small nucleolar RNA snoR143: a 168-nucleotide sequence from Carnegiea gigantea. On this family, see Chen and Wu, Nucleic Acids Res 2009: "Mining small RNA sequencing data: a new approach to identify small nucleolar RNAs in Arabidopsis". Rfam 15.1 lists 660 matches to the family in 212 species. The source organism's lineage runs through Eukaryota, Magnoliopsida, Mesangiospermae, Pentapetalae and Carnegiea. Gene Ontology terms of the family: nucleolus and RNA processing. It scores 84 bits against the family's covariance model. Pairs were carried over by alignment from the consensus structure, which was predicted with RNAalifold.
[Rfam]
RNA sequence: CUGCGCCCUGUUUUUUAGCAAUCACUAACAAAUAGUGUUAGCCUUUGAGCGAGGGUGCACAAAGAAACAGCUGCAUUUUUUGAACGCGGCAGCGGCCAGACAACCGUGGAGAUGGAUCCACAGAUGGGCAACCCAAAAAUGCUGCCUUACUAAUUCCAUCUCACAUUU
Numbered sequence: 001c002u003g004c005g006c007c008c009u010g011u012u013u014u015u016u017a018g019c020a021a022u023c024a025c026u027a028a029c030a031a032a033u034a035g036u037g038u039u040a041g042c043c044u045u046u047g048a049g050c051g052a053g054g055g056u057g058c059a060c061a062a063a064g065a066a067a068c069a070g071c072u073g074c075a076u077u078u079u080u081u082g083a084a085c086g087c088g089g090c091a092g093c094g095g096c097c098a099g100a101c102a103a104c105c106g107u108g109g110a111g112a113u114g115g116a117u118c119c120a121c122a123g124a125u126g127g128g129c130a131a132c133c134c135a136a137a138a139a140u141g142c143u144g145c146c147u148u149a150c151u152a153a154u155u156c157c158a159u160c161u162c163a164c165a166u167u168u
Stems, first nucleotide, its partner, number of pairs: 002059005009051003013048002017044002019041001021039001023037004109162008128146001130143001
Dot-bracket structure: .(((((..(((.((..(((.(.((((.......)))).).).))..)))))...))))).................................................((((((((...........(.(............)..)........))))))))......